[Rfam]
RNA sequence: ACCAAACCGAUAAUCUAGAGUAGUAGAGAAUGAUGAAUGUUUAAAGAGAGCCGUCAAUGGUGAGAAUACGGCAACAGGAAUUUUCUUGAAUGGACUAGAGAGGGCAGCUCUGAAAUCAUAGUAGGAGCUGACGGGAAACCCUAUCCGUUAACAAGCAGGGUACAUAUGAUAGUAUGUAAAACGAGUGGGCGCUAUAACAGCGCCAAUUUGGGUGGUAUCGCAGGAGUCUAAGCUCUUGUCCCUUUU
Numbered sequence: 001a002c003c004a005a006a007c008c009g010a011u012a013a014u015c016u017a018g019a020g021u022a023g024u025a026g027a028g029a030a031u032g033a034u035g036a037a038u039g040u041u042u043a044a045a046g047a048g049a050g051c052c053g054u055c056a057a058u059g060g061u062g063a064g065a066a067u068a069c070g071g072c073a074a075c076a077g078g079a080a081u082u083u084u085c086u087u088g089a090a091u092g093g094a095c096u097a098g099a100g101a102g103g104g105c106a107g108c109u110c111u112g113a114a115a116u117c118a119u120a121g122u123a124g125g126a127g128c129u130g131a132c133g134g135g136a137a138a139c140c141c142u143a144u145c146c147g148u149u150a151a152c153a154a155g156c157a158g159g160g161u162a163c164a165u166a167u168g169a170u171a172g173u174a175u176g177u178a179a180a181a182c183g184a185g186u187g188g189g190c191g192c193u194a195u196a197a198c199a200g201c202g203c204c205a206a207u208u209u210g211g212g213u214g215g216u217a218u219c220g221c222a223g224g225a226g227u228c229u230a231a232g233c234u235c236u237u238g239u240c241c242c243u244u245u246u
Stems, first nucleotide, its partner, number of pairs: 007103002015098004026087005039075003050072005105130007132147003188204006210242003220239008
This 246-nucleotide RNA from Carnobacterium antarcticum belongs to the Rfam family "T-box leader". NCBI's taxonomy places the organism under Bacteria, Bacillati, Bacilli, Lactobacillales, Carnobacterium. A search with the family's covariance model found it, with a score of 124 bits. The family has 48 seed sequences and 19,395 matches in Rfam 15.1. It is annotated as a cis-regulatory leader.